RNA: 5' ureB small RNA
RNA sequence: AUCCUCGAUCUGCUGUGGACAGAUGAAGUGGAUGUGGCUGUCGAUGCCGCCGGCGGUCAGGAUCUUGCCCUCCCCCGCGAUGGCCUCGGUGCCCGGGCCGACGAUGAUGUCGACGCCGGGCUGGGUGUCGGGGUUGCCCGCCUUGCCGAUCUUAUGGAUGCGCCCGUCGCGCAGCCCCACAUCCGCCUUGUAGAUGCCCGUCCAGUCGACGAUCAGCGCGUUGGUGAUGACGGUGUCGACCGCACCUUCGGCCCGCGUCGCCUGCGACUGGCCCAUGCCGUCGCGGAU
Numbered sequence: 001a002u003c004c005u006c007g008a009u010c011u012g013c014u015g016u017g018g019a020c021a022g023a024u025g026a027a028g029u030g031g032a033u034g035u036g037g038c039u040g041u042c043g044a045u046g047c048c049g050c051c052g053g054c055g056g057u058c059a060g061g062a063u064c065u066u067g068c069c070c071u072c073c074c075c076c077g078c079g080a081u082g083g084c085c086u087c088g089g090u091g092c093c094c095g096g097g098c099c100g101a102c103g104a105u106g107a108u109g110u111c112g113a114c115g116c117c118g119g120g121c122u123g124g125g126u127g128u129c130g131g132g133g134u135u136g137c138c139c140g141c142c143u144u145g146c147c148g149a150u151c152u153u154a155u156g157g158a159u160g161c162g163c164c165c166g167u168c169g170c171g172c173a174g175c176c177c178c179a180c181a182u183c184c185g186c187c188u189u190g191u192a193g194a195u196g197c198c199c200g201u202c203c204a205g206u207c208g209a210c211g212a213u214c215a216g217c218g219c220g221u222u223g224g225u226g227a228u229g230a231c232g233g234u235g236u237c238g239a240c241c242g243c244a245c246c247u248u249c250g251g252c253c254c255g256c257g258u259c260g261c262c263u264g265c266g267a268c269u270g271g272c273c274c275a276u277g278c279c280g281u282c283g284c285g286g287a288u
Stems, first nucleotide, its partner, number of pairs: 001288002004285001006283003010157003014154002017075002021071002029052003033049002036047001039044001056068002077146001080143001082142003089137003093133002096129003106116001162272001164271003170266005175260001177257001184220003188216003199208002222255003229248002233245003